The family of this 74-nucleotide RNA sequence from Atlantisia rogersi is "mir-129 microRNA precursor family". The family's consensus secondary structure was predicted with RNAalifold. Rfam 15.1 lists 1,242 matches to the family in 559 species. It scores 79 bits against the family's covariance model. Lineage of the source: Eukaryota > Opisthokonta > Eumetazoa > Amniota > Atlantisia.
[Rfam]
RNA sequence: UCAGGUCUUUUUGCGGUCUGGGCUUGCUGUUCCUCCCGCUGCACCCAGGAAGCCCUUACCCCAAAAAGGAGCUG
Numbered sequence: 001u002c003a004g005g006u007c008u009u010u011u012u013g014c015g016g017u018c019u020g021g022g023c024u025u026g027c028u029g030u031u032c033c034u035c036c037c038g039c040u041g042c043a044c045c046c047a048g049g050a051a052g053c054c055c056u057u058a059c060c061c062c063a064a065a066a067a068g069g070a071g072c073u074g
Base pairs, nucleotide, nucleotide: 007068008067009066010065011064012063013062015060016059017058020055021054022053023052025050027048028047